[Rfam]
Rfam assigns this 94-nucleotide RNA from Panicum miliaceum to the family "Small nucleolar RNA Z159/U59". The family's RNA type in Rfam is C/D-box small nucleolar RNA. Its family is annotated with RNA processing and nucleolus in the Gene Ontology. The family's consensus secondary structure was predicted with PFOLD.
RNA sequence: GUCUCUGCUGAUGAUCAAAAUGCAUACUUUCGUUCUUCUGAUGCGCUUUUCUCAUGGCGCGAUGCGGAACACUCGAGACCUGAACUAAAGAGAG
Number, nucleotide and partner (000 for none) at each position: 001g000002u000003c092004u091005c090006u089007g000008c000009u000010g000011a000012u000013g000014a000015u000016c000017a000018a000019a000020a000021u000022g000023c000024a000025u000026a000027c000028u000029u000030u000031c000032g000033u000034u000035c000036u000037u000038c000039u000040g000041a000042u000043g000044c000045g000046c000047u000048u000049u000050u000051c000052u000053c000054a000055u000056g000057g000058c000059g000060c000061g000062a000063u000064g000065c000066g000067g000068a000069a000070c000071a000072c000073u000074c000075g000076a000077g000078a000079c000080c000081u000082g000083a000084a000085c000086u000087a000088a000089a006090g005091a004092g003093a000094g000